[Rfam]
RNA sequence: CUCUGUCUCAAAAUGAUUCAGGGCAAGGAGGAG
Numbered sequence: 001c002u003c004u005g006u007c008u009c010a011a012a013a014u015g016a017u018u019c020a021g022g023g024c025a026a027g028g029a030g031g032a033g
Stems, first nucleotide, its partner, number of pairs: 001023005008016003
L31-Firmicutes ribosomal protein leader: a 33-nucleotide sequence from Halalkalibacillus halophilus. The family's consensus secondary structure is taken from published work. The literature on the family includes a 2020 paper in BMC Microbiol by Eckert and Weinberg, "Discovery of 20 novel ribosomal leader candidates in bacteria and archaea". Clan: Ribosomal Protein L31 Leader clan.